The family of this 107-nucleotide sequence from Paenibacillus sp. KS1 is "Glycine riboswitch aptamer".
It scores 60 bits against the family's covariance model.
RNA sequence: GGACAGGACUCUGGAGAGACUCCAUGAUUGGGGCACCGAAGGGGCAAGACGAAUUUGAUUCUCGUGGAUUCGUUAAAACUCUCAGGUAAAAGGACAGGGAUGCAGAA
Dot-bracket structure: ......(.(((((......((((......)))).(((((..(((...((((((((((.......))))))))))....))))).))).......))))).)......